[Rfam]
RNA sequence: CCGUGCUAAGCGGGGAGGUAGCGGUGCCCUGUACUCGCAAGCCGCUAGAGCGGGGCCGAAUUCCCAUUCGAGGUCGGACGUCUUUAAGGUCUGCCUCAAGGGAUUAGUGUUGACGCCCAGGUCCUGCGCAACAGGAACCCAUGAAUCCUGUCAGAUCCGGAAGGAAGCAGCAGUAAGUGGUCAUUCUUGUGUGCCGCGGGGAAGCCUGAGCCGAGCCAUGAACUUGAGUAACGCUUAGGGAUGCCCGAUCAACAAUGGGUGCACGG
Numbered sequence: 001c002c003g004u005g006c007u008a009a010g011c012g013g014g015g016a017g018g019u020a021g022c023g024g025u026g027c028c029c030u031g032u033a034c035u036c037g038c039a040a041g042c043c044g045c046u047a048g049a050g051c052g053g054g055g056c057c058g059a060a061u062u063c064c065c066a067u068u069c070g071a072g073g074u075c076g077g078a079c080g081u082c083u084u085u086a087a088g089g090u091c092u093g094c095c096u097c098a099a100g101g102g103a104u105u106a107g108u109g110u111u112g113a114c115g116c117c118c119a120g121g122u123c124c125u126g127c128g129c130a131a132c133a134g135g136a137a138c139c140c141a142u143g144a145a146u147c148c149u150g151u152c153a154g155a156u157c158c159g160g161a162a163g164g165a166a167g168c169a170g171c172a173g174u175a176a177g178u179g180g181u182c183a184u185u186c187u188u189g190u191g192u193g194c195c196g197c198g199g200g201g202a203a204g205c206c207u208g209a210g211c212c213g214a215g216c217c218a219u220g221a222a223c224u225u226g227a228g229u230a231a232c233g234c235u236u237a238g239g240g241a242u243g244c245c246c247g248a249u250c251a252a253c254a255a256u257g258g259g260u261g262c263a264c265g266g
Stems, first nucleotide, its partner, number of pairs: 001266006010056002012030004017025001019023001034054005063259006072250005079243010092230002096227005104220001107216002115211002118208005123200006129191002132189005139180004148173004156165003
The record is a 266-nucleotide sequence from Lentibacillus salicampi, which matches "Bacterial large signal recognition particle RNA" in Rfam. Rfam's curators write: The signal recognition particle (SRP) is a universally conserved ribonucleoprotein involved in the co-translational targeting of proteins to membranes. NCBI's taxonomy places the organism under Bacteria, Bacillati, Bacillota, Bacillaceae, Lentibacillus. Gene Ontology terms of the family: signal recognition particle, plasma membrane targeting and SRP-dependent cotranslational protein targeting to membrane, signal sequence recognition. Clan: SRP clan. It is annotated as a non-coding RNA gene.